[Rfam]
Nucleotides: 046
Stems, first nucleotide, its partner, number of pairs: 001020008033045005
Number, partner (000 for none) and nucleotide at each position: 001020c002019c003018c004017a005016g006015g007014g008013u009000u010000c011000a012000c013008a014007c015006c016005c017004u018003g019002g020001g021000c022000u023000a024000u025000u026000c027000u028000c029000u030000g031000c032000c033045g034044c035043c036042c037041c038000g039000u040000u041037g042036g043035g044034g045033c046000u